[Rfam]
Nucleotides: 142
Base pairs, nucleotide, nucleotide: 011126012125016030017029018028031123032122033121034120035119036118041067068108069107070106076085077084078083088102089101090100091099
Number, partner (000 for none) and nucleotide at each position: 001000c002000u003000u004000a005000a006000g007000c008000a009000a010000a011126c012125c013000g014000a015000a016030c017029a018028c019000u020000c021000a022000u023000a024000g025000g026000c027000a028018g029017u030016g031123g032122c033121g034120g035119g036118g037000g038000a039000a040000c041067c042000a043000a044000a045000c046000u047000u048000u049000g050000g051000g052000g053000c054000u055000a056000a057000g058000a059000c060000g061000c062000u063000c064000c065000u066000a067041g068108g069107g070106g071000u072000a073000a074000a075000g076085c077084g078083g079000g080000a081000a082000a083078c084077c085076g086000c087000c088102g089101a090100g091099a092000g093000a094000c095000u096000c097000c098000c099091u100090c101089u102088c103000g104000a105000a106070c107069c108068c109000g110000a111000c112000a113000g114000c115000u116000c117000a118036c119035u120034c121033c122032g123031c124000a125012g126011g127000c128000a129000c130000a131000g132000g133000g134000a135000g136000a137000g138000g139000u140000a141000a142000u
The family of this 142-nucleotide RNA sequence from Pseudoglutamicibacter albus is "c-di-AMP riboswitch aptamer (ydaO/yuaA leader)". Rfam links the family to the GO terms cyclic-di-AMP binding and regulation of gene expression. The organism belongs to Pseudoglutamicibacter albus, within Bacteria. This family represents a conserved RNA structure found upstream of the ydaO and yuaA genes in Bacillus subtilis and related genes in other bacteria. The base pairs follow the family's consensus structure.